[Rfam]
RNA sequence: GCAGACUCACUCUGCACCCAGCUGCAGCCCCAGGCGGUGCCUUUUCCGUCUGUCAGAGAAAUAUUCCUGGUGCUGUGGCUGCUUCACCUGUCAAGGGCAGUGCAGCUCUCUGGGGACAUGGGG
Numbered sequence: 001g002c003a004g005a006c007u008c009a010c011u012c013u014g015c016a017c018c019c020a021g022c023u024g025c026a027g028c029c030c031c032a033g034g035c036g037g038u039g040c041c042u043u044u045u046c047c048g049u050c051u052g053u054c055a056g057a058g059a060a061a062u063a064u065u066c067c068u069g070g071u072g073c074u075g076u077g078g079c080u081g082c083u084u085c086a087c088c089u090g091u092c093a094a095g096g097g098c099a100g101u102g103c104a105g106c107u108c109u110c111u112g113g114g115g116a117c118a119u120g121g122g123g
Stems, first nucleotide, its partner, number of pairs: 001053006014040005022033003065114003069110002072106006080099005
RNA: Small nucleolar RNA SNORA77